[Rfam]
RNA sequence: ACUAUCUCUAGAAGUUUUACAGGGGUGGCUGCUGUGUCACAUGUGUGUCAGCAGGUGGCAGAGAAGAGAGGAGCUAUGUCUAUGCUCAGCGUUCUGACCUAUGAAUAUCUGAAUGAAUAGUAGCCUGACAUU
Numbered sequence: 001a002c003u004a005u006c007u008c009u010a011g012a013a014g015u016u017u018u019a020c021a022g023g024g025g026u027g028g029c030u031g032c033u034g035u036g037u038c039a040c041a042u043g044u045g046u047g048u049c050a051g052c053a054g055g056u057g058g059c060a061g062a063g064a065a066g067a068g069a070g071g072a073g074c075u076a077u078g079u080c081u082a083u084g085c086u087c088a089g090c091g092u093u094c095u096g097a098c099c100u101a102u103g104a105a106u107a108u109c110u111g112a113a114u115g116a117a118u119a120g121u122a123g124c125c126u127g128a129c130a131u132u
Stems, first nucleotide, its partner, number of pairs: 002061002005058002007055003014048002019046003025040005068129001071126001073124005083115002086112004091106004
Rfam assigns this 132-nucleotide RNA sequence from Mus musculus to the family "Small nucleolar RNA SNORA17". The family's consensus secondary structure was predicted with RNAalifold. NCBI's taxonomy places the organism under Eukaryota, Vertebrata, Teleostomi, Myomorpha, Mus. Rfam's curators write: snoRNA ACA 17 belongs to the H/ACA family of snoRNAs and is predicted to guide pseudouridylation of the 28S rRNA at positions U4659 and U4598. It shares the same host gene together with ACA43. A search with the family's covariance model found it, with a score of 108 bits. The family is grouped with related families in Rfam's "SNORA17 clan".